[Rfam]
RNA sequence: GUAUCAAACGAUGAACUGCCGAAGACAGUAGGUACCAUUUGGUGUAAGCACAGCGCCUACCGAGGAAGAAUCGUAUGUUUGACGUUUCGCUCUAUGUCUUUGGAUAUAGAGCUUUUCUUAUAUUUAG
Numbered sequence: 001g002u003a004u005c006a007a008a009c010g011a012u013g014a015a016c017u018g019c020c021g022a023a024g025a026c027a028g029u030a031g032g033u034a035c036c037a038u039u040u041g042g043u044g045u046a047a048g049c050a051c052a053g054c055g056c057c058u059a060c061c062g063a064g065g066a067a068g069a070a071u072c073g074u075a076u077g078u079u080u081g082a083c084g085u086u087u088c089g090c091u092c093u094a095u096g097u098c099u100u101u102g103g104a105u106a107u108a109g110a111g112c113u114u115u116u117c118u119u120a121u122a123u124u125u126a127g
Stems, first nucleotide, its partner, number of pairs: 028060006034043003089112010
A member of the RNA family "Ribosomal protein L10 leader" from Clostridium sp. CAG:590, 127 nucleotides long. The family's RNA type in Rfam is cis-regulatory leader.